mir-4872 microRNA precursor family: a 75-nucleotide sequence from Branchiostoma floridae. The source organism's lineage runs through Eukaryota, Deuterostomia, Chordata, Branchiostomatidae and Branchiostoma. The match comes from Rfam's covariance-model search (58 bits). Rfam 15.1 lists 72 matches to the family in 3 species.
[Rfam]
RNA sequence: UCACAUGUAGUGCCGGGGCAACUAAACUUUUAGUUCCGAUGGCCCCAGAGUUUUGUUGCCCCGGCUCCGAAUGGG
Numbered sequence: 001u002c003a004c005a006u007g008u009a010g011u012g013c014c015g016g017g018g019c020a021a022c023u024a025a026a027c028u029u030u031u032a033g034u035u036c037c038g039a040u041g042g043c044c045c046c047a048g049a050g051u052u053u054u055g056u057u058g059c060c061c062c063g064g065c066u067c068c069g070a071a072u073g074g075g
Base pairs, nucleotide, nucleotide: 001075002074004073005072006071010067012065013064014063015062016061017060019058020057021056022055024054025052026051027050028049029048030047033043034042